The record is a 136-nucleotide sequence from Daphoenositta chrysoptera, which matches "Small Cajal body specific RNA 3" in Rfam. scaRNAs are a specific class of small nuclear RNAs which localise to the Cajal bodies and guide the modification of RNA polymerase II transcribed spliceosomal RNAs U1, U2, U4, U5 and U12. Pairs were carried over by alignment from the consensus structure, which was predicted with RNAalifold. Its family is annotated with RNA processing, nucleolus and Cajal body in the Gene Ontology.
RNA sequence: GCUGGGACCAGUUGGGUCCAGUCAUGGGCAAAAUAAAUAUUUUGUUGUCCGCUGUUGCAGUCUUCCUAGAGCAAAUUGGAGGUCUCUGUCUGCUUUAGGACAGCCAACUAAAUCAGAUCGUUCCCCUCCUUACACG
Numbered sequence: 001g002c003u004g005g006g007a008c009c010a011g012u013u014g015g016g017u018c019c020a021g022u023c024a025u026g027g028g029c030a031a032a033a034u035a036a037a038u039a040u041u042u043u044g045u046u047g048u049c050c051g052c053u054g055u056u057g058c059a060g061u062c063u064u065c066c067u068a069g070a071g072c073a074a075a076u077u078g079g080a081g082g083u084c085u086c087u088g089u090c091u092g093c094u095u096u097a098g099g100a101c102a103g104c105c106a107a108c109u110a111a112a113u114c115a116g117a118u119c120g121u122u123c124c125c126c127u128c129c130u131u132a133c134a135c136g
Stems, first nucleotide, its partner, number of pairs: 004066003009060001011058002025051005034044003078129005086120001088118003092114001094112005